Shown here is a 235-nucleotide sequence from Coregonus sp. 'balchen', a member of the family "Small nucleolar RNA SNORA53". About the family: The snoRNA ACA53 belongs to the H/ACA family of pseudouridylation guide snoRNAs. By type it is an H/ACA-box small nucleolar RNA. Rfam links the family to the GO terms nucleolus and RNA processing. The match comes from Rfam's covariance-model search (105 bits).

RNA sequence: AACACGUUCCUUAGAUCCACCUCUGGAGGGCACUCCUGUGCUGGUGCUGUUGUCUCUGCGUGCUGCAGCUCCAGCUUGGAGGCCCUCAGCAGCUUUUUGGCUGUACAGUUGGAGGUGCUUGAGUCAUUGGCGUGUGAGAGCAGUCUACCUGCCUCCCAGCAACCCAGCUGCACUGGCAACCCUCAGUUCCACUGGCGGGACCCUACCAGUACAGCUUUGCUGGGGGAUAGACAAU
Dot-bracket structure: .(((((((.(((((...(((((((((((((...(((...(((((.((((..(.(.......))..)))).)))))..)))..))))).((((((....)))))).....)))))))).))))).....))))))).............(((.(..(.((((.......((.(((((......(((.......)))..........))))).))....)))).)..).))).....